[Rfam]
RNA sequence: GAAAUUUAAGGGCGGAACAGGCAGCCGCCGCCACGUGUUUUACACGGUAGGAGAUGCAGAUUGCCACCUGCUAAAUUUC
Number, nucleotide and partner (000 for none) at each position: 001g079002a078003a077004a076005u075006u074007u073008a072009a000010g000011g029012g028013c027014g026015g025016a000017a000018c000019a000020g065021g064022c063023a062024g000025c015026c014027g013028c012029c011030g000031c051032c000033a000034c046035g045036u044037g043038u042039u000040u000041u000042a038043c037044a036045c035046g034047g000048u000049a000050g000051g031052a000053g000054a000055u000056g071057c070058a069059g068060a000061u000062u023063g022064c021065c020066a000067c000068c059069u058070g057071c056072u008073a007074a006075a005076u004077u003078u002079c001
The record is a 79-nucleotide sequence, which matches "skipping-rope RNA" in Rfam. Rfam's curators put it in the seed alignment.